Record summary
A member of the RNA family "U11 spliceosomal RNA" from Dendrobium catenatum, 127 nucleotides long. It is annotated as a spliceosomal small nuclear RNA. NCBI's taxonomy places the organism under Eukaryota, Streptophyta, Euphyllophyta, Liliopsida, Dendrobium.
Nucleotides: 127
Base pairs, nucleotide, nucleotide: 008081009080010079012077014028015027016026017025029052030051031050033048034047035046053076054075055074056073057072058071059070100124101123102122103121104120105119106118107117109116110115
Number, partner (000 for none) and nucleotide at each position: 001000u002000a003000a004000a005000a006000g007000g008081g009080u010079c011000a012077g013000u014028u015027g016026g017025c018000u019000a020000u021000g022000c023000a024000u025017g026016c027015c028014a029052c030051g031050c032000a033048u034047a035046u036000c037000u038000u039000u040000u041000a042000a043000u044000u045000a046035a047034u048033g049000g050031g051030c052029g053076u054075u055074g056073u057072a058071u059070g060000a061000u062000u063000a064000u065000u066000a067000a068000g069000a070059c071058a072057u073056a074055u075054g076053g077012c078000c079010g080009a081008c082000a083000u084000a085000a086000u087000u088000u089000a090000u091000g092000a093000a094000u095000g096000u097000u098000a099000u100124a101123g102122g103121g104120u105119u106118g107117g108000c109116u110115u111000g112000c113000u114000c115110a116109g117107u118106u119105a120104a121103c122102c123101c124100u125000c126000u127000u